[Rfam]
RNA sequence: AGAAUAUAAGAAACCGUCUCUUAACUUUUAACUAAAAAAAGCUAAGAGCCAACUCUUAAACAAGAGCUUUAAGAGCUGGCUCUUAGCUUUUUUAGUUAAAAGUUAAGAGACCGUUUCUUAUAUUCC
Numbered sequence: 001a002g003a004a005u006a007u008a009a010g011a012a013a014c015c016g017u018c019u020c021u022u023a024a025c026u027u028u029u030a031a032c033u034a035a036a037a038a039a040a041g042c043u044a045a046g047a048g049c050c051a052a053c054u055c056u057u058a059a060a061c062a063a064g065a066g067c068u069u070u071a072a073g074a075g076c077u078g079g080c081u082c083u084u085a086g087c088u089u090u091u092u093u094a095g096u097u098a099a100a101a102g103u104u105a106a107g108a109g110a111c112c113g114u115u116u117c118u119u120a121u122a123u124u125c126c
Stems, first nucleotide, its partner, number of pairs: 002125013016111024042086007